SAM riboswitch aptamer (S box leader): a 106-nucleotide RNA from Candidatus Kurthia intestinigallinarum. The match comes from Rfam's covariance-model search (90 bits). Taxonomically the source falls in Kurthia (Bacteria, Bacillati, Bacilli, Caryophanales).
RNA sequence: CCUUUAUCAAGAGUGGCGGAGGGAAUAGGCCCUGCGAUGCCCGGCAACCAGUAUUUUUACUACGGUGCUAAAUCCUACAGAUUGAAUCGGAUCUGAAAGAUAAGGG
Numbered sequence: 001c002c003u004u005u006a007u008c009a010a011g012a013g014u015g016g017c018g019g020a021g022g023g024a025a026u027a028g029g030c031c032c033u034g035c036g037a038u039g040c041c042c043g044g045c046a047a048c049c050a051g052u053a054u055u056u057u058u059a060c061u062a063c064g065g066u067g068c069u070a071a072a073u074c075c076u077a078c079a080g081a082u083u084g085a086a087u088c089g090g091a092u093c094u095g096a097a098a099g100a101u102a103a104g105g106g
Base pairs, nucleotide, nucleotide: 001106002105003104004103005102006101007100008099013042015041016040017039021032022031023030026077027076028075029074043069044068045067046066048065049064050061051060052059053058073098078095079094080093081092082091083090